Overview: The record is a 159-nucleotide RNA sequence from Streptomyces sp. YIM 130001, which matches "c-di-AMP riboswitch aptamer (ydaO/yuaA leader)" in Rfam. Rfam links the family to the GO terms regulation of gene expression and cyclic-di-AMP binding. Lineage of the source: Bacteria > Bacillati > Actinomycetota > Kitasatosporales > Streptomyces.

RNA sequence: UCAGUGCAUCUACCCGUGCACGGCAGGAGCGGGGGACCCACGGUAAUUCGCCGUUCCGGUCCACCGGAAAGGCUAGGGGUGAAGUCGCGUCGAAUGCGCGGCCGGGCAGCUCCAGUCCGAACCCGACAGCUCACCUCGUAGGCGCCGGAGAGGAAUUCG
Numbered sequence: 001u002c003a004g005u006g007c008a009u010c011u012a013c014c015c016g017u018g019c020a021c022g023g024c025a026g027g028a029g030c031g032g033g034g035g036a037c038c039c040a041c042g043g044u045a046a047u048u049c050g051c052c053g054u055u056c057c058g059g060u061c062c063a064c065c066g067g068a069a070a071g072g073c074u075a076g077g078g079g080u081g082a083a084g085u086c087g088c089g090u091c092g093a094a095u096g097c098g099c100g101g102c103c104g105g106g107c108a109g110c111u112c113c114a115g116u117c118c119g120a121a122c123c124c125g126a127c128a129g130c131u132c133a134c135c136u137c138g139u140a141g142g143c144g145c146c147g148g149a150g151a152g153g154a155a156u157u158c159g
Base pairs, nucleotide, nucleotide: 001028002027029139030138031137032136033135034134039076077124078123079122085101086100087099088098104118105117106116107115